RNA sequence: AACGACCGGUCGGACAUAUGUAUGCCCGACCCGCAAGUGGAGGCUCCGAACUCCCACCUGACCAUCCUCCGGGAAGGCAGGUCACCCGGUCAGACGGCCCCCACCGUUCCGUACGGACGGUGGAGUCGUCCGAAAUCGCGCCCCGCGGAACACCCGCGGCGGUGCUCCGGCAGUGCUAGGAGCCCCGCCUGUGUACCGUCCGGGGCAUUUUUC
Numbered sequence: 001a002a003c004g005a006c007c008g009g010u011c012g013g014a015c016a017u018a019u020g021u022a023u024g025c026c027c028g029a030c031c032c033g034c035a036a037g038u039g040g041a042g043g044c045u046c047c048g049a050a051c052u053c054c055c056a057c058c059u060g061a062c063c064a065u066c067c068u069c070c071g072g073g074a075a076g077g078c079a080g081g082u083c084a085c086c087c088g089g090u091c092a093g094a095c096g097g098c099c100c101c102c103a104c105c106g107u108u109c110c111g112u113a114c115g116g117a118c119g120g121u122g123g124a125g126u127c128g129u130c131c132g133a134a135a136u137c138g139c140g141c142c143c144c145g146c147g148g149a150a151c152a153c154c155c156g157c158g159g160c161g162g163u164g165c166u167c168c169g170g171c172a173g174u175g176c177u178a179g180g181a182g183c184c185c186c187g188c189c190u191g192u193g194u195a196c197c198g199u200c201c202g203g204g205g206c207a208u209u210u211u212u213c
Stems, first nucleotide, its partner, number of pairs: 004091006012027002028083004034060002037057004041052002062077002065074003093130003097127001101123008140206006146198003155193003158189005164183005
A member of the RNA family "Streptomyces RNA 1601" from Streptomyces capitiformicae, 213 nucleotides long. NCBI's taxonomy places the organism under Bacteria, Actinomycetes, Kitasatosporales, Streptomycetaceae, Streptomyces. About the family: Identified by deep sequencing of transcriptome at the end of exponential growth phase. Appears longer on northern blot than sequencing transcript. Streptomyces specific.